[Rfam]
RNA: DUF3577 RNA
Nucleotides: 108
Stems, first nucleotide, its partner, number of pairs: 013028006034073005053067006086101004
Number, partner (000 for none) and nucleotide at each position: 001000c002000g003000u004000a005000u006000c007000g008000g009000a010000g011000a012000a013028g014027c015026g016025c017024a018023g019000g020000a021000a022000a023018c024017u025016g026015u027014g028013c029000g030000a031000a032000a033000c034073u035072c036071g037070c038069c039000u040000g041000u042000a043000a044000u045000c046000c047000c048000g049000g050000c051000a052000u053067c054066a055065c056064c057063g058062c059000a060000u061000c062058g063057c064056g065055g066054u067053g068000u069038g070037g071036c072035g073034a074000c075000u076000c077000u078000c079000u080000c081000a082000a083000a084000c085000a086101c087100u088099g089098c090000a091000c092000a093000a094000u095000g096000a097000u098089g099088c100087a101086g102000c103000a104000c105000u106000c107000u108000c